RNA sequence: GGUAGCCGAAAAUGUCAGUGGGAUUGAGAUUUGGCUCAAUUAAGCGAACUUGCCCCACAGCCGGAUCGUAAAUGCCGCCCCAGCGAGUUGCUUUGGCGACGAAUGCCAGCGCUGCCACGCCAAGAAACAGCAGGUGAUGCCCGAGAAUAAGCGUGAGCUGCUUCGGAUCAUCCCA
Dot-bracket structure: ....................................................................................................................................((((((..(((((................)))))))))))...